[Rfam]
TPP riboswitch aptamer (THI element): a 103-nucleotide RNA from Oceanimonas sp. GK1. Rfam links the family to the GO term thiamine pyrophosphate binding. The base pairs follow the family's consensus structure, which is taken from published work. Taxonomically the source falls in Oceanimonas (Bacteria, Pseudomonadota, Gammaproteobacteria, Aeromonadaceae). A search with the family's covariance model found it, with a score of 69 bits.

RNA sequence: UGCGAUUGGUCGGGGAGCCGAAAGGCCGAGACGGCAGUGAUAUGCCGAACCCGUUGAACCUGAUCCAGUUAACACUGGCGUAGGGAACCGAUGGCCGAUGGCC
Numbered sequence: 001u002g003c004g005a006u007u008g009g010u011c012g013g014g015g016a017g018c019c020g021a022a023a024g025g026c027c028g029a030g031a032c033g034g035c036a037g038u039g040a041u042a043u044g045c046c047g048a049a050c051c052c053g054u055u056g057a058a059c060c061u062g063a064u065c066c067a068g069u070u071a072a073c074a075c076u077g078g079c080g081u082a083g084g085g086a087a088c089c090g091a092u093g094g095c096c097g098a099u100g101g102c103c
Stems, first nucleotide, its partner, number of pairs: 006091005011053004017026003033046004059084004065078004